RNA sequence: CUUGUGGACUGUCAUAUCAAAUGAGAGUAGACUUUACAUUUCAAAGUGUGAAAAUGAAAUCAGACAGGUAGAAGCAAGAA
Numbered sequence: 001c002u003u004g005u006g007g008a009c010u011g012u013c014a015u016a017u018c019a020a021a022u023g024a025g026a027g028u029a030g031a032c033u034u035u036a037c038a039u040u041u042c043a044a045a046g047u048g049u050g051a052a053a054a055u056g057a058a059a060u061c062a063g064a065c066a067g068g069u070a071g072a073a074g075c076a077a078g079a080a
Stems, first nucleotide, its partner, number of pairs: 001078005009067005022062003030055001033052007
Source information:
Rfam assigns this 80-nucleotide RNA to the family "RAGATH-18 RNA". Actinobacteria, Firmicutes, Fusobacteria, Thermotogae (1 example). By type it is a small RNA. It is one of the family's seed sequences.